[Rfam]
RNA: Nitrogen stress-induced RNA 1
Organism: Pegethrix bostrychoides
RNA sequence: UGGUAGAUGCACCCUGAUUCAUGCCCCAGAGCCAAAACUCUGGGGUUUUUUUGC
Numbered sequence: 001u002g003g004u005a006g007a008u009g010c011a012c013c014c015u016g017a018u019u020c021a022u023g024c025c026c027c028a029g030a031g032c033c034a035a036a037a038c039u040c041u042g043g044g045g046u047u048u049u050u051u052u053g054c
Stems, first nucleotide, its partner, number of pairs: 002013003023046009